[Rfam]
RNA sequence: UUCUGAAGGGGGAAAUCCUGUGCGCUCUAUGUUGCAUUUUAUCGACCCAUAAGCGUAUAGCUUUUCCCAUUCAGCG
Numbered sequence: 001u002u003c004u005g006a007a008g009g010g011g012g013a014a015a016u017c018c019u020g021u022g023c024g025c026u027c028u029a030u031g032u033u034g035c036a037u038u039u040u041a042u043c044g045a046c047c048c049a050u051a052a053g054c055g056u057a058u059a060g061c062u063u064u065u066c067c068c069a070u071u072c073a074g075c076g
Base pairs, nucleotide, nucleotide: 003074004073005072006071007070010068011067012066014064015063018060019059020058021057022056025053026052028051029050030049031048
Dot-bracket structure: ..(((((..(((.((..(((((..((.((((................))))))..)))))..)).))).)))))..